[Rfam]
Nucleotides: 067
Stems, first nucleotide, its partner, number of pairs: 004064014019049010
Number, partner (000 for none) and nucleotide at each position: 001000c002000u003000a004064u005063a006062c007061a008060c009059u010058g011057a012056g013055u014054g015053g016052c017051c018000a019049g020048a021047u022046u023045a024044u025043u026042a027041u028040g029000a030000u031000a032000u033000c034000u035000g036000a037000a038000c039000a040028c041027a042026u043025a044024a045023u046022a047021a048020u049019c050000a051017g052016g053015c054014c055013a056012c057011u058010c059009a060008g061007u062006g063005u064004g065000c066000a067000c
mir-9256 microRNA precursor family: a 67-nucleotide RNA from Pipistrellus kuhlii. The source organism's lineage runs through Eukaryota, Teleostomi, Amniota, Theria and Pipistrellus. The family has 8 seed sequences and 31,772 matches in Rfam 15.1.